RNA sequence: UACUGAGUUUGUGUUCUAAAGAAGAAAGUUAUCCCAGAUAGCCUUUGACCGUGACGCUUCAUCUUGGUUUUUUCCUGAUUAAAUAGUUGACUCUGGCCCAUAUAUGCCGAAAAGGCAAGUUUUUUUGAUGUUAUAUAGGAAAAGUCAAAUGUCCGACAAAAUGAAAGGUCAAGUUAAGUGGUUCAACGAGUCUAAAGGCUUCGGUUUCAUCACUCCUGCUGAUGGUAGCAAAGACGUUUUCGUUCACUUCUCUGCCAUUCAGGGCGCUGGUUUCAAAACUCUGGCAGAAGGCCAGCAAGUUGAAUUCACCAUUGAAAAUGGUGCGAAAGGCCCAGCAGCUGCUAACGUAACUGCAAUCUAAGCUUAAUUGCUUAACUGAUUUUCUAAAGCCCGUCAUUUUUAAUGACGGGCUUUUUC
Number, nucleotide and partner (000 for none) at each position: 001u000002a000003c000004u000005g016006a015007g014008u013009u000010u000011g000012u000013g008014u007015u006016c005017u000018a000019a000020a000021g000022a000023a217024g216025a000026a000027a214028g213029u212030u000031a000032u000033c000034c000035c000036a000037g208038a207039u000040a000041g206042c198043c197044u196045u195046u000047g192048a191049c190050c188051g187052u186053g184054a183055c000056g182057c181058u180059u000060c151061a150062u149063c000064u148065u147066g146067g000068u000069u000070u000071u000072u000073u140074c139075c138076u137077g136078a000079u000080u135081a134082a000083a101084u100085a000086g098087u000088u000089g000090a000091c000092u000093c000094u000095g000096g000097c000098c086099c000100a084101u083102a000103u000104a000105u000106g116107c115108c114109g000110a000111a000112a000113a000114g108115g107116c106117a000118a000119g000120u000121u000122u000123u000124u000125u000126u000127g000128a000129u000130g000131u000132u000133a000134u081135a080136u077137a076138g075139g074140a073141a000142a000143a000144g000145u000146c066147a065148a064149a062150u061151g060152u000153c168154c167155g000156a000157c000158a000159a000160a000161a000162u000163g000164a000165a000166a000167g154168g153169u000170c000171a000172a000173g000174u000175u000176a000177a000178g000179u000180g058181g057182u056183u054184c053185a000186a052187c051188g050189a000190g049191u048192c047193u000194a000195a045196a044197g043198g042199c000200u000201u000202c000203g000204g000205u000206u041207u038208c037209a000210u000211c000212a029213c028214u027215c000216c024217u023218g000219c000220u314221g313222a312223u311224g310225g309226u000227a000228g000229c000230a000231a000232a000233g241234a240235c000236g000237u000238u000239u000240u234241c233242g000243u000244u302245c000246a300247c299248u298249u297250c000251u000252c295253u294254g293255c291256c290257a000258u000259u284260c283261a282262g281263g280264g000265c000266g279267c000268u277269g000270g000271u000272u000273u000274c000275a000276a000277a268278a000279c266280u263281c262282u261283g260284g259285c000286a000287g000288a000289a000290g256291g255292c000293c254294a253295g252296c000297a249298a248299g247300u246301u000302g244303a000304a000305u000306u000307c000308a000309c225310c224311a223312u222313u221314g220315a000316a000317a000318a000319u334320g333321g332322u000323g331324c330325g000326a000327a000328a000329g000330g324331c323332c321333c320334a319335g354336c353337a352338g351339c000340u000341g000342c000343u350344a000345a000346c000347g000348u000349a000350a343351c338352u337353g336354c335355a000356a000357u379358c378359u374360a000361a372362g371363c370364u000365u000366a000367a000368u000369u000370g363371c362372u361373u000374a359375a000376c000377u000378g358379a357380u000381u000382u000383u000384c000385u000386a414387a413388a412389g411390c410391c409392c408393g407394u406395c405396a404397u403398u000399u000400u000401u000402a000403a397404u396405g395406a394407c393408g392409g391410g390411c389412u388413u387414u386415u000416u000417c000